The family of this 106-nucleotide RNA sequence from Pseudoxanthomonas suwonensis is "TPP riboswitch aptamer (THI element)". A search with the family's covariance model found it, with a score of 63 bits. The source organism's lineage runs through Bacteria, Pseudomonadota, Lysobacteraceae, Pseudoxanthomonas and Pseudoxanthomonas suwonensis.
RNA sequence: CCGGCGAAGCGGGGGUACCGCGGCGCCGUCCAGGCGCGCGGUUGAGACAGUCCCUUGGAACCUGAUCCGGCUGAUACCGGCGUAGGGAAGCUUCGCAGGACGGGAU
Numbered sequence: 001c002c003g004g005c006g007a008a009g010c011g012g013g014g015g016u017a018c019c020g021c022g023g024c025g026c027c028g029u030c031c032a033g034g035c036g037c038g039c040g041g042u043u044g045a046g047a048c049a050g051u052c053c054c055u056u057g058g059a060a061c062c063u064g065a066u067c068c069g070g071c072u073g074a075u076a077c078c079g080g081c082g083u084a085g086g087g088a089a090g091c092u093u094c095g096c097a098g099g100a101c102g103g104g105a106u
Stems, first nucleotide, its partner, number of pairs: 006094005011055004016049001017042005061086004067080004
Dot-bracket structure: .....(((((((((.((((((................)))))......)..)))).....((((..((((......))))..))))...)))))............